[Rfam]
RNA sequence: UCCAAUCUUCGGGGCAGGGUGCAAUUCCCGACCGGCGGUAAAGUCCGCGAGCUGCAUACAUAUUGUGGUUGAUCUGGUUAAAUUCCAGUACCGACAGUUAUAGUCUGGAUGGGAGAAGAUGUCG
Number, nucleotide and partner (000 for none) at each position: 001u000002c000003c000004a000005a120006u119007c118008u117009u116010c115011g000012g000013g000014g000015c000016a000017g029018g028019g027020u000021g000022c000023a000024a000025u000026u000027c019028c018029c017030g000031a104032c103033c093034g092035g048036c047037g046038g045039u000040a000041a000042a000043g091044u090045c038046c037047g036048c035049g000050a000051g069052c068053u067054g000055c000056a000057u000058a000059c000060a000061u000062a000063u000064u000065g000066u000067g053068g052069u051070u000071g000072a000073u000074c088075u087076g086077g085078u000079u000080a000081a000082a000083u000084u000085c077086c076087a075088g074089u000090a044091c043092c034093g033094a000095c107096a106097g105098u000099u000100a000101u000102a000103g032104u031105c097106u096107g095108g000109a000110u000111g000112g000113g000114a000115g010116a009117a008118g007119a006120u005121g000122u000123c000124g000
The record is a 124-nucleotide sequence from Oceanobacillus iheyensis, which matches "FMN riboswitch aptamer (RFN element)" in Rfam.
Rfam's curators write: The RFN element is a highly conserved domain that is found frequently in the 5'-untranslated regions of prokaryotic mRNAs that encode for flavin mononucleotide (FMN) biosynthesis and transport proteins. This element is a metabolite-dependent riboswitch that directly binds FMN in the absence of proteins. In Bacillus subtilis, the riboswitch most likely controls gene expression by causing premature transcription termination within the 5' untranslated region of the ribDEAHT operon and precluding access to the ribosome-binding site of ypaA mRNA.The FMN riboswitch structure, reported in present an FMN-bound six-stem junction, adopts a butterfly-like scaffold, stapled together by opposingly directed but nearly identically folded peripheral domains.
Pairs were carried over by alignment from the consensus structure, which is taken from published work.
The source organism's lineage runs through Bacteria, Caryophanales, Bacillaceae, Oceanobacillus and Oceanobacillus iheyensis.